[Rfam]
Source information
This 80-nucleotide RNA sequence from Bacillus sp. FJAT-26390 belongs to the Rfam family "ZMP/ZTP riboswitch aptamer (pfl RNA motif)". NCBI's taxonomy places the organism under Bacteria, Bacillati, Bacilli, Caryophanales, Bacillus.

RNA sequence: AAAGCUGUGCGUGACUGGCGGAGCAUGGGUAACCAUGAGGAAGCGCAUAGCAUCAUUAGCCGUACGCCUGGGCAAAGGUA
Numbered sequence: 001a002a003a004g005c006u007g008u009g010c011g012u013g014a015c016u017g018g019c020g021g022a023g024c025a026u027g028g029g030u031a032a033c034c035a036u037g038a039g040g041a042a043g044c045g046c047a048u049a050g051c052a053u054c055a056u057u058a059g060c061c062g063u064a065c066g067c068c069u070g071g072g073c074a075a076a077g078g079u080a
Stems, first nucleotide, its partner, number of pairs: 004051009015040002017068004025036004057075001059073003

Pairs were carried over by alignment from the consensus structure, which is taken from published work.